Y RNA: a 98-nucleotide RNA from Cebus imitator.
It scores 60 bits against the family's covariance model.
The literature on the family includes a 2000 paper in Genes Dev by Chen et al., "Ro ribonucleoproteins contribute to the resistance of Deinococcus radiodurans to ultraviolet irradiation".
Y RNAs are components of the Ro ribonucleoprotein particle (Ro RNP), in association with Ro60 and La proteins.
NCBI's taxonomy places the organism under Eukaryota, Amniota, Boreoeutheria, Euarchontoglires, Cebus.
By type it is a non-coding RNA gene.

RNA sequence: GGCUGGUCUGAGUGAAGUGGUGUUUACAACCAAUUGAUCACAACUAGUUACGAAUUUCUUCCUUCUCAACUCCCACUCCUUUACUUCACUAGCCUUUA
Numbered sequence: 001g002g003c004u005g006g007u008c009u010g011a012g013u014g015a016a017g018u019g020g021u022g023u024u025u026a027c028a029a030c031c032a033a034u035u036g037a038u039c040a041c042a043a044c045u046a047g048u049u050a051c052g053a054a055u056u057u058c059u060u061c062c063u064u065c066u067c068a069a070c071u072c073c074c075a076c077u078c079c080u081u082u083a084c085u086u087c088a089c090u091a092g093c094c095u096u097u098a
Stems, first nucleotide, its partner, number of pairs: 001094007010086002014082002016077005022072001028060002032056002
Dot-bracket structure: (((((((..((..(((((((.(.....((..((.....................))..))...........))))))...))..)).)))))))....